The family of this 120-nucleotide sequence from Vibrio sp. 16 is "MtlS RNA". Rfam's curators put it in the seed alignment. A reference for the family is Mustachio et al. (2012), "The Vibrio cholerae mannitol transporter is regulated post-transcriptionally by the MtlS small RNA", Journal of Bacteriology. NCBI's taxonomy places the organism under Bacteria, Pseudomonadota, Vibrionales, Vibrionaceae, Vibrio. Rfam links the family to the GO term mannitol transport. The family's RNA type in Rfam is small RNA.

RNA sequence: UUCCCCGUUCGAUGUUCUGAUGAAUAUUGUAGUAGUACGGUUCGCCAAAACCGCUUGAUUGCUUAGUUCUCAAUCAAUUUACCACACAAAUUCAUUCUGGAACUGACGACGGGUUUUUUG
Numbered sequence: 001u002u003c004c005c006c007g008u009u010c011g012a013u014g015u016u017c018u019g020a021u022g023a024a025u026a027u028u029g030u031a032g033u034a035g036u037a038c039g040g041u042u043c044g045c046c047a048a049a050a051c052c053g054c055u056u057g058a059u060u061g062c063u064u065a066g067u068u069c070u071c072a073a074u075c076a077a078u079u080u081a082c083c084a085c086a087c088a089a090a091u092u093c094a095u096u097c098u099g100g101a102a103c104u105g106a107c108g109a110c111g112g113g114u115u116u117u118u119u120g
Stems, first nucleotide, its partner, number of pairs: 004113006014103006022093003025088001027086001029085002032082004038053005055077007